[Rfam]
RNA sequence: UAAACGGCUCUUUUCAGAGCCACCUAAACAAUGCAUAGGCUGAAUU
Numbered sequence: 001u002a003a004a005c006g007g008c009u010c011u012u013u014u015c016a017g018a019g020c021c022a023c024c025u026a027a028a029c030a031a032u033g034c035a036u037a038g039g040c041u042g043a044a045u046u
Stems, first nucleotide, its partner, number of pairs: 006021006
Shown here is a 46-nucleotide RNA sequence from Rhipicephalus sanguineus, a member of the family "Histone 3' UTR stem-loop".
On this family, see Zhang et al., Proc Natl Acad Sci U S A 2014: "Molecular mechanisms for the regulation of histone mRNA stem-loop-binding protein by phosphorylation".
The mRNAs of metazoan histone genes lack a poly-A tail. 3' end processing occurs at a site between a highly conserved stem-loop (modelled by this family) and a purine rich region around 20 nts downstream (the histone downstream element, or HDE). The stem-loop is bound by a 31 kDa stem-loop binding protein (SLBP - also termed the histone hairpin binding protein, or HBP). Together with U7 snRNA binding of the HDE, SLBP binding nucleate s the formation of the processing complex. The histone 3' UTR stem-loop is also involved in nucleocytoplasmic transport of the mRNA, and in stability regulation and translation efficiency in the cytoplasm.
The family's consensus secondary structure is taken from published work.
Its family is annotated with mRNA 3'-end processing by stem-loop binding and cleavage in the Gene Ontology.